This 80-nucleotide sequence from Flavobacterium muglaense belongs to the Rfam family "Flavo-1 RNA". By type it is a small RNA.
RNA sequence: UUUUAGCCCUGAUAGAAACGGCAUCCUUUUACUUUUUUUCUUUAAAAAAGUAAAAGAUAUAGUGAAUAGCAGGACUAGCU
Numbered sequence: 001u002u003u004u005a006g007c008c009c010u011g012a013u014a015g016a017a018a019c020g021g022c023a024u025c026c027u028u029u030u031a032c033u034u035u036u037u038u039u040c041u042u043u044a045a046a047a048a049a050g051u052a053a054a055a056g057a058u059a060u061a062g063u064g065a066a067u068a069g070c071a072g073g074a075c076u077a078g079c080u
Stems, first nucleotide, its partner, number of pairs: 009072003013068002018063002023058003029053010